RT-6 RNA: a 74-nucleotide sequence.
The family's RNA type in Rfam is small RNA.
The sequence is in the family's curated seed alignment.
Pairs were carried over by alignment from the consensus structure, which is taken from published work.
RNA sequence: UACUCUAUGCAAGUAGGCAUAGGGGAAGAGGAUUGUUGUCAACACCUCCAGGAUUAUUCUUGUGAGUUGUGGAU
Numbered sequence: 001u002a003c004u005c006u007a008u009g010c011a012a013g014u015a016g017g018c019a020u021a022g023g024g025g026a027a028g029a030g031g032a033u034u035g036u037u038g039u040c041a042a043c044a045c046c047u048c049c050a051g052g053a054u055u056a057u058u059c060u061u062g063u064g065a066g067u068u069g070u071g072g073a074u
Stems, first nucleotide, its partner, number of pairs: 003024008055069002059066002